This 590-nucleotide part of an RNA belongs to the Rfam family "Bacterial large subunit ribosomal RNA". Pairs were carried over by alignment from the consensus structure, which is taken from published work. Rfam 15.1 lists 51,934 matches to the family in 10,816 species. The literature on the family includes a 2002 paper in BMC Bioinformatics by Cannone et al., "The comparative RNA web (CRW) site: an online database of comparative sequence and structure information for ribosomal, intron, and other RNAs". It scores 2499 bits against the family's covariance model.
RNA sequence: CCCGCACCUGGACAGAAAGACCCUAUGAAGCUUCACUGUUCCCUGCGAUUGGAUUCGGGCUCUUCUUGCGCAGCUUAGGUGGAAGGCAAAGAGGGCUCCUUUCCGGAGGGGCCUGAGCCAUCAGUGAGAUACCACUCUAGAAGAACUAGAAUUCUAACCUUGUGUCAAGAAUUACGGACCAAGAGACAGUCCCAGGUAGACAGUUUCUAUGGGGCGUAGGCCUCCCAAAGAGUAACGGAGGCGCGCAAAGGUUUCCUCAGGCUGGACGGAAAUCAGCCUACGAGUGCAAAGGCAGAAGGGAGCUUGACUGCGAGACCUACCAGUCGAGCAGGGACGAAAGUCGGCCUUAGUGAUCCGACGGUUCCAAGUGGAAGGGCCGUCGCUCAACGGAUAAAAGUUACUCUAGGGAUAACAGGCUGAUCUUCCCCAAGAGUUCACAUCGACGGGAAGGUUUGGCACCUCGAUGUCGGCUCUUCGCCACCUGGGGCGGUAGUACGUCCCAAGGGUUGGGCUGUUCGCCCAUUAAAGCGGUACGUGAGCUGGGUUCAGAACGUCGUGAGACAGUUCGGUCCAUAUCCGGUGCGGGCGCU
Numbered sequence: 001c002c003c004g005c006a007c008c009u010g011g012a013c014a015g016a017a018a019g020a021c022c023c024u025a026u027g028a029a030g031c032u033u034c035a036c037u038g039u040u041c042c043c044u045g046c047g048a049u050u051g052g053a054u055u056c057g058g059g060c061u062c063u064u065c066u067u068g069c070g071c072a073g074c075u076u077a078g079g080u081g082g083a084a085g086g087c088a089a090a091g092a093g094g095g096c097u098c099c100u101u102u103c104c105g106g107a108g109g110g111g112c113c114u115g116a117g118c119c120a121u122c123a124g125u126g127a128g129a130u131a132c133c134a135c136u137c138u139a140g141a142a143g144a145a146c147u148a149g150a151a152u153u154c155u156a157a158c159c160u161u162g163u164g165u166c167a168a169g170a171a172u173u174a175c176g177g178a179c180c181a182a183g184a185g186a187c188a189g190u191c192c193c194a195g196g197u198a199g200a201c202a203g204u205u206u207c208u209a210u211g212g213g214g215c216g217u218a219g220g221c222c223u224c225c226c227a228a229a230g231a232g233u234a235a236c237g238g239a240g241g242c243g244c245g246c247a248a249a250g251g252u253u254u255c256c257u258c259a260g261g262c263u264g265g266a267c268g269g270a271a272a273u274c275a276g277c278c279u280a281c282g283a284g285u286g287c288a289a290a291g292g293c294a295g296a297a298g299g300g301a302g303c304u305u306g307a308c309u310g311c312g313a314g315a316c317c318u319a320c321c322a323g324u325c326g327a328g329c330a331g332g333g334a335c336g337a338a339a340g341u342c343g344g345c346c347u348u349a350g351u352g353a354u355c356c357g358a359c360g361g362u363u364c365c366a367a368g369u370g371g372a373a374g375g376g377c378c379g380u381c382g383c384u385c386a387a388c389g390g391a392u393a394a395a396a397g398u399u400a401c402u403c404u405a406g407g408g409a410u411a412a413c414a415g416g417c418u419g420a421u422c423u424u425c426c427c428c429a430a431g432a433g434u435u436c437a438c439a440u441c442g443a444c445g446g447g448a449a450g451g452u453u454u455g456g457c458a459c460c461u462c463g464a465u466g467u468c469g470g471c472u473c474u475u476c477g478c479c480a481c482c483u484g485g486g487g488c489g490g491u492a493g494u495a496c497g498u499c500c501c502a503a504g505g506g507u508u509g510g511g512c513u514g515u516u517c518g519c520c521c522a523u524u525a526a527a528g529c530g531g532u533a534c535g536u537g538a539g540c541u542g543g544g545u546u547c548a549g550a551a552c553g554u555c556g557u558g559a560g561a562c563a564g565u566u567c568g569g570u571c572c573a574u575a576u577c578c579g580g581u582g583c584g585g586g587c588g589c590u
Base pairs, nucleotide, nucleotide: 001586002585003584004583005582006581007580008579010578011577012576015572022407023406024405025404027403028402029399030398031397032396033395035204036203037202038201042196043195044194045193047191048190051154052153053152054151055150056149058147059146061144062143063142064141065140066139068137078136079135080134081133082132085119086118087117094113095112096111097110098109099108100107101106159183160182164179165178166177207219208218209217210216220242221241222240223239224238225237243388245345246344251303252302253301254300255299256298257283258282260278261277262276263275264274265273284293285292308331309330310329311328314325315324316323333342334341335340356382357381358380359379360378361377362376364375365374416457417456418455420454421451422450423449424448425447426446427445431441432440468543469541470540471539472538473535475531476530477529478528481506482505484501485500486499487498488497489496508522509521510520511519512518549567550566551565552564553562554561555560